[Rfam]
RNA sequence: UUGAACCGAUACCGAGGCAGGCCAACGGCCUGAGGGGAUACCUGCAUCGCAGGAGGCUGCACAGAGUGCAUUACCGACACCCCACAAUACCUCAACUGCUGCCCGCUCUGGCGCACAGGUAUCGUUCA
Numbered sequence: 001u002u003g004a005a006c007c008g009a010u011a012c013c014g015a016g017g018c019a020g021g022c023c024a025a026c027g028g029c030c031u032g033a034g035g036g037g038a039u040a041c042c043u044g045c046a047u048c049g050c051a052g053g054a055g056g057c058u059g060c061a062c063a064g065a066g067u068g069c070a071u072u073a074c075c076g077a078c079a080c081c082c083c084a085c086a087a088u089a090c091c092u093c094a095a096c097u098g099c100u101g102c103c104c105g106c107u108c109u110g111g112c113g114c115a116c117a118g119g120u121a122u123c124g125u126u127c128a
Base pairs, nucleotide, nucleotide: 002128003127004126005125007124008123009122010121011120012119013118018032019031020030021029022028023027034083035082036081037080041053042052043051044050045049055075056074058070059069060068061067062066